Shown here is a 90-nucleotide sequence from Leersia perrieri, a member of the family "Small nucleolar RNA Z266". A reference for the family is Chen et al. (2003), "The high diversity of snoRNAs in plants: identification and comparative study of 120 snoRNA genes from Oryza sativa", Nucleic Acids Res. Rfam classes the family as a C/D-box small nucleolar RNA.

RNA sequence: GAUUGGCCGGAAUGAUGAAUCAAUUAGAUGUAUGAACUAGCGUUAUGAUUUGAAACUUUUGAGGCAUAAUUUCUUUCUGACCUGCCAAUC
Numbered sequence: 001g002a003u004u005g006g007c008c009g010g011a012a013u014g015a016u017g018a019a020u021c022a023a024u025u026a027g028a029u030g031u032a033u034g035a036a037c038u039a040g041c042g043u044u045a046u047g048a049u050u051u052g053a054a055a056c057u058u059u060u061g062a063g064g065c066a067u068a069a070u071u072u073c074u075u076u077c078u079g080a081c082c083u084g085c086c087a088a089u090c
Stems, first nucleotide, its partner, number of pairs: 001090007009082002
Dot-bracket structure: (((((((.((......................................................................)).)))))))